[Rfam]
RNA sequence: UUUGAGAAUUUUGGAGGCAGGGGUUGAUCGAUCUGUUCUGUGUAAAGCUAUAAGCAAAAUAUAGCAAACUGGAAUCGAUCGAUAAACCUCUGCAUCCAGCGCCCUUAAA
Numbered sequence: 001u002u003u004g005a006g007a008a009u010u011u012u013g014g015a016g017g018c019a020g021g022g023g024u025u026g027a028u029c030g031a032u033c034u035g036u037u038c039u040g041u042g043u044a045a046a047g048c049u050a051u052a053a054g055c056a057a058a059a060u061a062u063a064g065c066a067a068a069c070u071g072g073a074a075u076c077g078a079u080c081g082a083u084a085a086a087c088c089u090c091u092g093c094a095u096c097c098a099g100c101g102c103c104c105u106u107a108a109a
Stems, first nucleotide, its partner, number of pairs: 013097003018092003022088004027083007036074003

This 109-nucleotide sequence from Capsicum baccatum belongs to the Rfam family "MIR162_1 microRNA precursor family". The source organism's lineage runs through Eukaryota, Embryophyta, Magnoliopsida, Mesangiospermae and Capsicum. The literature on the family includes a 2002 paper in Genes Dev by Reinhart et al., "MicroRNAs in plants". Rfam links the family to the GO terms RISC complex and miRNA-mediated post-transcriptional gene silencing.